Record summary:
The record is a 57-nucleotide RNA from Salinispora fenicalii, which matches "L31-Actinobacteria ribosomal protein leader" in Rfam.

[Rfam]
RNA sequence: CCGGUUCCGGUUCACGCCCUAUCCGUCGUACACCUGCGGCCGGGCGACCCGGCGACC
Numbered sequence: 001c002c003g004g005u006u007c008c009g010g011u012u013c014a015c016g017c018c019c020u021a022u023c024c025g026u027c028g029u030a031c032a033c034c035u036g037c038g039g040c041c042g043g044g045c046g047a048c049c050c051g052g053c054g055a056c057c
Stems, first nucleotide, its partner, number of pairs: 003057003007052004015046005

Its Rfam clan is "Ribosomal Protein L31 Leader clan".